[Rfam]
RNA sequence: GCAUCGCCCUGAAUGGCACUGGAAGAAUUCACGGGGUGUCUCCUUGUCUCCGUGAUUUCCCGGUGCCAAGUAGGGAGGUGC
Numbered sequence: 001g002c003a004u005c006g007c008c009c010u011g012a013a014u015g016g017c018a019c020u021g022g023a024a025g026a027a028u029u030c031a032c033g034g035g036g037u038g039u040c041u042c043c044u045u046g047u048c049u050c051c052g053u054g055a056u057u058u059c060c061c062g063g064u065g066c067c068a069a070g071u072a073g074g075g076a077g078g079u080g081c
Stems, first nucleotide, its partner, number of pairs: 003079003007075004014068005020062003023058001025057002029055006